[Rfam]
RNA sequence: UAGGGUCGGCCCCGACCCUCUUUAGUUCAAUCAAAUGAACUAGAUUUCCAAAAUGAAAGCUCAUUUUGAAAAUCUAGUUCAUUUGAUUGAACUAAAGAGGGUCGGAGGUUACCCUA
Numbered sequence: 001u002a003g004g005g006u007c008g009g010c011c012c013c014g015a016c017c018c019u020c021u022u023u024a025g026u027u028c029a030a031u032c033a034a035a036u037g038a039a040c041u042a043g044a045u046u047u048c049c050a051a052a053a054u055g056a057a058a059g060c061u062c063a064u065u066u067u068g069a070a071a072a073u074c075u076a077g078u079u080c081a082u083u084u085g086a087u088u089g090a091a092c093u094a095a096a097g098a099g100g101g102u103c104g105g106a107g108g109u110u111a112c113c114c115u116a
Stems, first nucleotide, its partner, number of pairs: 002115005008109001010107001012105032
Rfam assigns this 116-nucleotide sequence from Eragrostis curvula to the family "MIR5070 microRNA precursor family".
A search with the family's covariance model found it, with a score of 103 bits.
Rfam 15.1 lists 266 matches to the family in 8 species.
The family's consensus secondary structure was predicted with RNAalifold.
Rfam links the family to the GO terms miRNA-mediated post-transcriptional gene silencing and RISC complex.